[Rfam]
RNA sequence: ACAAUGAUACUUCUGACCGUUCAGGCUGCCAACGUAAAAGAGCAGCAAGUGAAAUUCUUAUGA
Numbered sequence: 001a002c003a004a005u006g007a008u009a010c011u012u013c014u015g016a017c018c019g020u021u022c023a024g025g026c027u028g029c030c031a032a033c034g035u036a037a038a039a040g041a042g043c044a045g046c047a048a049g050u051g052a053a054a055u056u057c058u059u060a061u062g063a
Stems, first nucleotide, its partner, number of pairs: 012060001013024004026045003030040001047059003
pemK RNA: a 63-nucleotide sequence.
The base pairs follow the family's consensus structure, which is taken from published work.